This 82-nucleotide RNA from Nothobranchius furzeri belongs to the Rfam family "mir-181 microRNA precursor family". A reference for the family is Ambros (2001), "microRNAs: tiny regulators with great potential", Cell.
[Rfam]
RNA sequence: UGCCUACAGGGAACAUUCAACGCUGUCGGUGAGUUUGUGGUCUGACAAAAACCAUUGACCGUUGACUGUACCCUGAGGGACA
Dot-bracket structure: ((.((.((.....((.((((((..(((((((.((((............))))))))))))))))).)).....)).))..))
A search with the family's covariance model found it, with a score of 73 bits. Lineage of the source: Eukaryota > Teleostei > Osteoglossocephalai > Neoteleostei > Nothobranchius.